[Rfam]
RNA sequence: AGUUAUCUUCAGGGCAGGGUGUGAGUCCCUACCGGCGGUAAAGCCCGCGAGCCAUAAUUGGCAGAUUCGGUUAGAUUCCGAAGCCGACAGUAUAGUCUGGAUGGAAGAAGGUAUAU
Numbered sequence: 001a002g003u004u005a006u007c008u009u010c011a012g013g014g015c016a017g018g019g020u021g022u023g024a025g026u027c028c029c030u031a032c033c034g035g036c037g038g039u040a041a042a043g044c045c046c047g048c049g050a051g052c053c054a055u056a057a058u059u060g061g062c063a064g065a066u067u068c069g070g071u072u073a074g075a076u077u078c079c080g081a082a083g084c085c086g087a088c089a090g091u092a093u094a095g096u097c098u099g100g101a102u103g104g105a106a107g108a109a110g111g112u113a114u115a116u
Base pairs, nucleotide, nucleotide: 004113005112006111007110008109009108010107017029018028019027031096032095033086034085035048036047037046038045043084044083051062052061053060066082067081068080069079070078088099089098090097
RNA: FMN riboswitch aptamer (RFN element)